[Rfam]
RNA sequence: UGAGAAAAUCGGUCUGUUGUUCCGAAUUUAUUUCGGGAAGGAAAGUCCGGACUCCAUAGAGCAGCGUAUAGGAUAACGUCCUUGCAUCGUGAGGUGAUGACCAGUGCAACAGAAAGUAUGUACAGUUCGGCUGUAGUGAAACCAGGUAAACUCUGCGCGGAGCAAUGGUAAGUAUAUCGGUUCUUCAGGAUUUUUUCCUGAAUAGAGGCGGCUCGUCUUGAAAUCCGAGGGGUAAUCAGCUAAAGUUUUGCAGUAAUGUAAAGCGUAGAUAAAUAACAGACGUUCAGAUUUAUUUCUGAAAACAGGAUCCGGCUUAUAGAUUUUCUCAUGGG
Numbered sequence: 001u002g003a004g005a006a007a008a009u010c011g012g013u014c015u016g017u018u019g020u021u022c023c024g025a026a027u028u029u030a031u032u033u034c035g036g037g038a039a040g041g042a043a044a045g046u047c048c049g050g051a052c053u054c055c056a057u058a059g060a061g062c063a064g065c066g067u068a069u070a071g072g073a074u075a076a077c078g079u080c081c082u083u084g085c086a087u088c089g090u091g092a093g094g095u096g097a098u099g100a101c102c103a104g105u106g107c108a109a110c111a112g113a114a115a116g117u118a119u120g121u122a123c124a125g126u127u128c129g130g131c132u133g134u135a136g137u138g139a140a141a142c143c144a145g146g147u148a149a150a151c152u153c154u155g156c157g158c159g160g161a162g163c164a165a166u167g168g169u170a171a172g173u174a175u176a177u178c179g180g181u182u183c184u185u186c187a188g189g190a191u192u193u194u195u196u197c198c199u200g201a202a203u204a205g206a207g208g209c210g211g212c213u214c215g216u217c218u219u220g221a222a223a224u225c226c227g228a229g230g231g232g233u234a235a236u237c238a239g240c241u242a243a244a245g246u247u248u249u250g251c252a253g254u255a256a257u258g259u260a261a262a263g264c265g266u267a268g269a270u271a272a273a274u275a276a277c278a279g280a281c282g283u284u285c286a287g288a289u290u291u292a293u294u295u296c297u298g299a300a301a302a303c304a305g306g307a308u309c310c311g312g313c314u315u316a317u318a319g320a321u322u323u324u325c326u327c328a329u330g331g332g
Stems, first nucleotide, its partner, number of pairs: 001328010011317001012281007020038007043315003047312005052162004059214004064158005070082004084098001085096004099153002104151002106147002121135006166238004177228004205219005245264008
Rfam assigns this 332-nucleotide RNA from Frigoriflavimonas asaccharolytica to the family "Bacterial RNase P class A". Ribonuclease P (RNase P) is a ubiquitous endoribonuclease, found in archaea, bacteria and eukarya as well as chloroplasts and mitochondria. Its best characterised activity is the generation of mature 5'-ends of tRNAs by cleaving the 5'-leader elements of precursor-tRNAs. By type it is a ribozyme. Clan: RNaseP clan.